[Rfam]
RNA sequence: UCGUCAGUACGGUACAUCCUUACCUGUUGCUCCUUCUUGGAGAACAGUAAAUGAUGAUUGGAGCCUGCAUGACACGUGAUUAGUGUCUCUGCAGCAACUCGGAGAUGGCGACAAACUCCUUGUUGCUCCUUUCUGAU
Dot-bracket structure: .......................(((.(.((((.....)))).)))).......................((.((((....).))).))....(((((..((((...........))))..)))))...........